[Rfam]
A member of the RNA family "U5 spliceosomal RNA" from Angiostrongylus costaricensis, 120 nucleotides long.
The organism belongs to Angiostrongylus, within Eukaryota.
It is annotated as a spliceosomal small nuclear RNA.
Gene Ontology terms of the family: spliceosomal tri-snRNP complex assembly and U5 snRNP.

RNA sequence: CAUCUCUGGAUCUGGUGCAUUUAACCGAGAAAAUCUUUCGCCUUUCACCAAAGAAUUCCGUGUAGCGGAGCGACUAUGAGUGAAUGCCAAUUUUUGCAGUCCACUCGACAAAGAGCGGGA
Number, nucleotide and partner (000 for none) at each position: 001c000002a000003u000004c080005u079006c078007u000008g000009g071010a000011u069012c068013u067014g066015g000016u064017g063018c062019a061020u000021u000022u000023a000024a000025c000026c000027g000028a000029g000030a000031a057032a056033a000034u054035c053036u052037u051038u050039c000040g000041c000042c000043u000044u000045u000046c000047a000048c000049c000050a038051a037052a036053g035054a034055a000056u032057u031058c000059c000060g000061u019062g018063u017064a016065g000066c014067g013068g012069a011070g000071c009072g000073a000074c000075u000076a000077u000078g006079a005080g004081u000082g000083a000084a000085u000086g000087c000088c000089a000090a000091u000092u000093u000094u000095u000096g000097c000098a000099g000100u119101c118102c117103a000104c115105u114106c000107g000108a000109c000110a000111a000112a000113g000114a105115g104116c000117g102118g101119g100120a000